[Rfam]
RNA sequence: ACUCUCGGGUUUCUCUUCAACUCGUACAAAUCUUUCGCCUUUUACUACAGAUUUCCGUGGAGGGGAACACCCCCGAGUUUACAGUAUUUUUGGAAGCUCUGCUUCGGCGGAGCA
Numbered sequence: 001a002c003u004c005u006c007g008g009g010u011u012u013c014u015c016u017u018c019a020a021c022u023c024g025u026a027c028a029a030a031u032c033u034u035u036c037g038c039c040u041u042u043u044a045c046u047a048c049a050g051a052u053u054u055c056c057g058u059g060g061a062g063g064g065g066a067a068c069a070c071c072c073c074c075g076a077g078u079u080u081a082c083a084g085u086a087u088u089u090u091u092g093g094a095a096g097c098u099c100u101g102c103u104u105c106g107g108c109g110g111a112g113c114a
Base pairs, nucleotide, nucleotide: 004077005076006075009068010067011066012065013064014063015062016061017060018059019058028054029053030052031051032050033049035047096113097112098111099110100109101108
Dot-bracket structure: ...(((..(((((((((((........((((((.(...........).))))))...)))))))))))......)))..................((((((......)))))).